[Rfam]
RNA sequence: AAGUAGUUAUAUGACUGACGGAAGUGGAAUUGACCACAGGAAAUAUAAUGCGAAGAGCCGACCGUCUGGGCAAAGAGU
Numbered sequence: 001a002a003g004u005a006g007u008u009a010u011a012u013g014a015c016u017g018a019c020g021g022a023a024g025u026g027g028a029a030u031u032g033a034c035c036a037c038a039g040g041a042a043a044u045a046u047a048a049u050g051c052g053a054a055g056a057g058c059c060g061a062c063c064g065u066c067u068g069g070g071c072a073a074a075g076a077g078u
Base pairs, nucleotide, nucleotide: 003051004050005049007048008047009046010045011044012043015040016039017066018065019064020063021062024037025036026035027034057071058070059069
About this RNA: Rfam assigns this 78-nucleotide RNA from Coprobacillus cateniformis to the family "ZMP/ZTP riboswitch aptamer (pfl RNA motif)". The match comes from Rfam's covariance-model search (53 bits). The source organism's lineage runs through Bacteria, Bacillota, Erysipelotrichia, Erysipelotrichales and Coprobacillus. Pairs were carried over by alignment from the consensus structure, which is taken from published work.